Notes
Shown here is a 195-nucleotide sequence from Anaerobacillus isosaccharinicus, a member of the family "Group II catalytic intron D1-D4-5". For this family Rfam cites "The ins and outs of group II introns" (Bonen and Vogel, Trends Genet, 2001).
RNA sequence: UUGAAGGAUUAUAUCGAAGAGUCAAAUGAUUGAGUAACGUCUUGAAGGGCUCUCUCUGAGUCGAGUAGCACUUGAUUUAGUAAGAAUGAAUGUGUUAUAAGCUCGGCAAAAAGGCGUGAGAAUUUACCGUAACAGUACGGCUGACGAAAGCCUACCCGCGGGGGUGAUGUAAAUCAUGAUGCUUGAGUUGAAUGA
Number, nucleotide and partner (000 for none) at each position: 001u000002u000003g000004a000005a000006g000007g000008a000009u000010u000011a000012u000013a000014u000015c000016g000017a000018a053019g052020a051021g050022u049023c048024a000025a000026a000027u000028g000029a000030u000031u000032g042033a000034g040035u000036a000037a000038c000039g000040u034041c000042u032043u000044g000045a000046a000047g000048g023049g022050c021051u020052c019053u018054c187055u186056c185057u000058g000059a000060g000061u106062c105063g104064a103065g098066u097067a096068g095069c094070a093071c092072u000073u090074g000075a000076u000077u086078u085079a000080g000081u000082a000083a000084g000085a078086a077087u000088g000089a000090a073091u000092g071093u070094g069095u068096u067097a066098u065099a000100a000101g000102c000103u064104c063105g062106g061107c000108a000109a000110a000111a000112a000113g183114g182115c181116g180117u179118g000119a000120g000121a000122a174123u173124u172125u171126a170127c169128c146129g145130u144131a000132a000133c000134a142135g141136u000137a000138c000139g000140g000141c135142u134143g000144a130145c129146g128147a000148a000149a000150g168151c000152c166153u000154a165155c164156c163157c162158g000159c000160g000161g000162g157163g156164g155165u154166g152167a000168u150169g127170u126171a125172a124173a123174u122175c000176a000177u000178g000179a117180u116181g115182c114183u113184u000185g056186a055187g054188u000189u000190g000191a000192a000193u000194g000195a000
It scores 106 bits against the family's covariance model. The organism belongs to Anaerobacillus, within Bacteria. About the family: Group II introns are found in rRNA, tRNA and mRNA of organelles in fungi, plants and protists, and also in mRNA in bacteria.